The family of this 215-nucleotide RNA from Streptomyces sp. BR123 is "Actinobacteria sRNA Ms_IGR-5". It scores 92 bits against the family's covariance model. For this family Rfam cites "Identification of small RNAs in Mycobacterium smegmatis using heterologous Hfq" (Li et al., RNA, 2013). The family's RNA type in Rfam is small RNA.

RNA sequence: ACACGAGAAGGGAGGUGGUUCCGGAAAUGUACGACUACCGGACGCGUGAGGUGACUGCGGGCUAAGGGCCCGUCGUCGCAACGCACCCAGUGCGGUGCCCGGCGGAAGACGCCCGGCGCCAAUCCCAAGCAGUCACCCGACCCGCGGGCUCGCCGGCACGUCCGGCCGGCUUCUCUUACCUGCAGGAGAGAAACCGAGCCCGCGGGUCGCCUGCU
Dot-bracket structure: ..............(((((..................................))))).(((.....(((...((((..............................))))...)))))).................(((((((((((((.((((((.......))))))..........................)))))))))))))......
Numbered sequence: 001a002c003a004c005g006a007g008a009a010g011g012g013a014g015g016u017g018g019u020u021c022c023g024g025a026a027a028u029g030u031a032c033g034a035c036u037a038c039c040g041g042a043c044g045c046g047u048g049a050g051g052u053g054a055c056u057g058c059g060g061g062c063u064a065a066g067g068g069c070c071c072g073u074c075g076u077c078g079c080a081a082c083g084c085a086c087c088c089a090g091u092g093c094g095g096u097g098c099c100c101g102g103c104g105g106a107a108g109a110c111g112c113c114c115g116g117c118g119c120c121a122a123u124c125c126c127a128a129g130c131a132g133u134c135a136c137c138c139g140a141c142c143c144g145c146g147g148g149c150u151c152g153c154c155g156g157c158a159c160g161u162c163c164g165g166c167c168g169g170c171u172u173c174u175c176u177u178a179c180c181u182g183c184a185g186g187a188g189a190g191a192a193a194c195c196g197a198g199c200c201c202g203c204g205g206g207u208c209g210c211c212u213g214c215u
Stems, first nucleotide, its partner, number of pairs: 015058005060120003068117003074111004138209013152170006